[Rfam]
RNA sequence: ACCAUCCUUUCCUUGGGGUUGUGCUGCUGUCCAGUGGGCAUGCAGUGAGGGCAGUACUGCGGACCCCUAACCAACACACUCGCACCGACCAGAGCUCUGCUGUACCUUGGUGCAGUGUUUGCAAAA
Numbered sequence: 001a002c003c004a005u006c007c008u009u010u011c012c013u014u015g016g017g018g019u020u021g022u023g024c025u026g027c028u029g030u031c032c033a034g035u036g037g038g039c040a041u042g043c044a045g046u047g048a049g050g051g052c053a054g055u056a057c058u059g060c061g062g063a064c065c066c067c068u069a070a071c072c073a074a075c076a077c078a079c080u081c082g083c084a085c086c087g088a089c090c091a092g093a094g095c096u097c098u099g100c101u102g103u104a105c106c107u108u109g110g111u112g113c114a115g116u117g118u119u120u121g122c123a124a125a126a
Stems, first nucleotide, its partner, number of pairs: 006018004021060003026055007038046002082113006091103001093101003